Eukaryotic large subunit ribosomal RNA: a 598-nucleotide part of an RNA from Parascaris univalens. Its Rfam clan is "LSU clan".
RNA sequence: AAUGAAGACCCUGUAGAGCUUGACUCUAGUCCGACUCUGUGAAGCGUCAUGAGAGGUGUAGCAUAAGUGGGAGGCUUUCGCCAACAGUGAAAGACCACUACUUUCAUCGAUUCUUUACUUAUUCGGUAAGACGAGAAUUGAGCCUAUCCGGCUCUUGAUUCUGGUGUUAAGUGCAGCCACUCGGUGGCCGUUCGACUCGCGCCGAAGACAGUGUCAGGCGGGGAGUUUGACUGGGGCGGUACAUCUGUCAAAUCGUAACGCAGGUGUCCUAAGGCUAGCUCAGAGAGGACGGAAACCUCUCGUAGAGCAAAAGGGCAAAAGCUCGCUUGAUCUUGAUUUUCAGUACGAAUACAGACCGCGAAAGCGUGGCCUAUCGAUCCUUUUGAAUUAGAAGGUCUCUAGCAAGAGGUGUCAGAAAAGUUACCACAGGGAUAACUGGCUUGUGGCAGCCAAGCGUCCAUAGCGACGUUGCUUUUUGAUCCUUCGAUGUCGGCUCUUCCUAUCAUUGCGAAGCAGAAUUCGCCAAGCGUUGGAUUGUUCACCCACCAAUAGGGAACGUGAGCUGGGUUUAGACCGUCGUGAGACAGGUUAGUUUUAC
Numbered sequence: 001a002a003u004g005a006a007g008a009c010c011c012u013g014u015a016g017a018g019c020u021u022g023a024c025u026c027u028a029g030u031c032c033g034a035c036u037c038u039g040u041g042a043a044g045c046g047u048c049a050u051g052a053g054a055g056g057u058g059u060a061g062c063a064u065a066a067g068u069g070g071g072a073g074g075c076u077u078u079c080g081c082c083a084a085c086a087g088u089g090a091a092a093g094a095c096c097a098c099u100a101c102u103u104u105c106a107u108c109g110a111u112u113c114u115u116u117a118c119u120u121a122u123u124c125g126g127u128a129a130g131a132c133g134a135g136a137a138u139u140g141a142g143c144c145u146a147u148c149c150g151g152c153u154c155u156u157g158a159u160u161c162u163g164g165u166g167u168u169a170a171g172u173g174c175a176g177c178c179a180c181u182c183g184g185u186g187g188c189c190g191u192u193c194g195a196c197u198c199g200c201g202c203c204g205a206a207g208a209c210a211g212u213g214u215c216a217g218g219c220g221g222g223g224a225g226u227u228u229g230a231c232u233g234g235g236g237c238g239g240u241a242c243a244u245c246u247g248u249c250a251a252a253u254c255g256u257a258a259c260g261c262a263g264g265u266g267u268c269c270u271a272a273g274g275c276u277a278g279c280u281c282a283g284a285g286a287g288g289a290c291g292g293a294a295a296c297c298u299c300u301c302g303u304a305g306a307g308c309a310a311a312a313g314g315g316c317a318a319a320a321g322c323u324c325g326c327u328u329g330a331u332c333u334u335g336a337u338u339u340u341c342a343g344u345a346c347g348a349a350u351a352c353a354g355a356c357c358g359c360g361a362a363a364g365c366g367u368g369g370c371c372u373a374u375c376g377a378u379c380c381u382u383u384u385g386a387a388u389u390a391g392a393a394g395g396u397c398u399c400u401a402g403c404a405a406g407a408g409g410u411g412u413c414a415g416a417a418a419a420g421u422u423a424c425c426a427c428a429g430g431g432a433u434a435a436c437u438g439g440c441u442u443g444u445g446g447c448a449g450c451c452a453a454g455c456g457u458c459c460a461u462a463g464c465g466a467c468g469u470u471g472c473u474u475u476u477u478g479a480u481c482c483u484u485c486g487a488u489g490u491c492g493g494c495u496c497u498u499c500c501u502a503u504c505a506u507u508g509c510g511a512a513g514c515a516g517a518a519u520u521c522g523c524c525a526a527g528c529g530u531u532g533g534a535u536u537g538u539u540c541a542c543c544c545a546c547c548a549a550u551a552g553g554g555a556a557c558g559u560g561a562g563c564u565g566g567g568u569u570u571a572g573a574c575c576g577u578c579g580u581g582a583g584a585c586a587g588g589u590u591a592g593u594u595u596u597a598c
Base pairs, nucleotide, nucleotide: 002596010430011429012428013427016425017422018421019420020419021418023226024225025224026223030218031217033215034214035213039118040117041116042115043114044113046111047110048109049107050106051105052104053103054102055101066099067098068097069096070095073082074081122206123205124204125203126202132199133198134197135196140154141153142152143151144150171193173191174190229242230240231239232238243265244264245263246262247261248260268369269368274326275325277323278322279321280306281305283301284300285299286298287297288296307316308315331355332354333353336350337349338348339347357366358365359364380408381407382406383405384404385403388402389401390400391399439480441478443477445473446472447471448470449469450468454464455463491566492564493563494562495561496558497555498554499553500552501551504529508523509522510521511520512519531545532544533543535541572590573589574588575587576585577584578583